[Rfam]
RNA: ASpks TB sRNA
Organism: Saccharothrix coeruleofusca
RNA sequence: CUUGAUCGACCCCAGCCACAGCGGCGCGUCCUCGGCGCGCUCGCUGCCGUAGGUGGCCAGCAGCGCCUGGGCUUC
Numbered sequence: 001c002u003u004g005a006u007c008g009a010c011c012c013c014a015g016c017c018a019c020a021g022c023g024g025c026g027c028g029u030c031c032u033c034g035g036c037g038c039g040c041u042c043g044c045u046g047c048c049g050u051a052g053g054u055g056g057c058c059a060g061c062a063g064c065g066c067c068u069g070g071g072c073u074u075c
Stems, first nucleotide, its partner, number of pairs: 015025003031071003038065002044060003047056003